Source information
Rfam assigns this 142-nucleotide RNA sequence from Granulicatella sp. WM01 to the family "PyrR binding site". Its family is annotated with pyrimidine nucleobase biosynthetic process and pyrimidine nucleobase transport in the Gene Ontology. About the family: This family represents the PyrR binding site and terminator structure. It scores 64 bits against the family's covariance model. For this family Rfam cites "Molecular recognition of pyr mRNA by the Bacillus subtilis attenuation regulatory protein PyrR" (Bonner et al., Nucleic Acids Res, 2001).

RNA sequence: AGACCUUUUAAUUAUUGUCCAGAGAGGCAAGCAAAGGUAUCAAUAAAAAUAAAUUUAUGGUUUAUAGUACACAUUAAUUGUUUACUAUACCUUAGCGUGUUAUUGAGCACAGCCUUUGCAUACGCAAAGGCUGUUUUUGUAU
Number, nucleotide and partner (000 for none) at each position: 001a000002g000003a038004c037005c036006u035007u034008u033009u000010a000011a000012u000013u000014a000015u030016u029017g028018u027019c026020c000021a000022g000023a000024g000025a000026g019027g018028c017029a016030a015031g000032c000033a008034a007035a006036g005037g004038u003039a000040u000041c000042a000043a000044u000045a000046a000047a000048a000049a000050u000051a000052a079053a078054u077055u076056u000057a074058u073059g072060g000061u000062u069063u000064a000065u000066a000067g000068u000069a062070c000071a000072c059073a058074u057075u000076a055077a054078u053079u052080g000081u000082u000083u000084a000085c000086u000087a000088u000089a000090c000091c000092u000093u000094a000095g000096c000097g000098u000099g000100u000101u000102a000103u000104u000105g000106a137107g136108c000109a134110c133111a132112g131113c130114c129115u128116u127117u126118g125119c124120a000121u000122a000123c000124g119125c118126a117127a116128a115129g114130g113131c112132u111133g110134u109135u000136u107137u106138u000139g000140u000141a000142u000